[Rfam]
The family of this 329-nucleotide RNA sequence from Spizellomyces punctatus is "Group I catalytic intron". The source organism's lineage runs through Eukaryota, Chytridiomycetes, Spizellomycetales, Spizellomycetaceae and Spizellomyces punctatus. Group I catalytic introns are large self-splicing ribozymes. They catalyse their own excision from mRNA, tRNA and rRNA precursors in a wide range of organisms. The core secondary structure consists of 9 paired regions (P1-P9). These fold to essentially two domains - the P4-P6 domain (formed from the stacking of P5, P4, P6 and P6a helices) and the P3-P9 domain (formed from the P8, P3, P7 and P9 helices). The literature on the family includes a 1990 paper in Annu Rev Biochem by Cech, "Self-splicing of group I introns".

RNA sequence: GAGACUCUUUUUGGCAGAAAGUCGGAGAUGAGUACCGACUGUACACUUGUAAAUUGCGGGAAACUCCUAAAGCCUACUCCCACCGCGUCUUAAGGGUGACCUUGAGAUGCAGCAGACAGGGUAACGCCUGUUGGAUGGUAAAAGUGGAGAGGAUUGGCCUCGAACACGCCCUUCGAGAAAUGCCUGAAUGGACAAUCCGCAGCCAAGCUGCUCUCUUGCCAGACAAGAGGCAGAAGGUUCAGAGACUAUAAUCAGGUGGGCUGUUGCGGGUGGGCUGGUUCCACUCGUGAUGGCUUGAGGUAUAGUCCACUCCCACCCGAAAGGGUGCU
Numbered sequence: 001g002a003g004a005c006u007c008u009u010u011u012u013g014g015c016a017g018a019a020a021g022u023c024g025g026a027g028a029u030g031a032g033u034a035c036c037g038a039c040u041g042u043a044c045a046c047u048u049g050u051a052a053a054u055u056g057c058g059g060g061a062a063a064c065u066c067c068u069a070a071a072g073c074c075u076a077c078u079c080c081c082a083c084c085g086c087g088u089c090u091u092a093a094g095g096g097u098g099a100c101c102u103u104g105a106g107a108u109g110c111a112g113c114a115g116a117c118a119g120g121g122u123a124a125c126g127c128c129u130g131u132u133g134g135a136u137g138g139u140a141a142a143a144g145u146g147g148a149g150a151g152g153a154u155u156g157g158c159c160u161c162g163a164a165c166a167c168g169c170c171c172u173u174c175g176a177g178a179a180a181u182g183c184c185u186g187a188a189u190g191g192a193c194a195a196u197c198c199g200c201a202g203c204c205a206a207g208c209u210g211c212u213c214u215c216u217u218g219c220c221a222g223a224c225a226a227g228a229g230g231c232a233g234a235a236g237g238u239u240c241a242g243a244g245a246c247u248a249u250a251a252u253c254a255g256g257u258g259g260g261c262u263g264u265u266g267c268g269g270g271u272g273g274g275c276u277g278g279u280u281c282c283a284c285u286c287g288u289g290a291u292g293g294c295u296u297g298a299g300g301u302a303u304a305g306u307c308c309a310c311u312c313c314c315a316c317c318c319g320a321a322a323g324g325g326u327g328c329u
Stems, first nucleotide, its partner, number of pairs: 013023003044258005055201006065192003202238002208233003215227004242308001244307005260294009314327005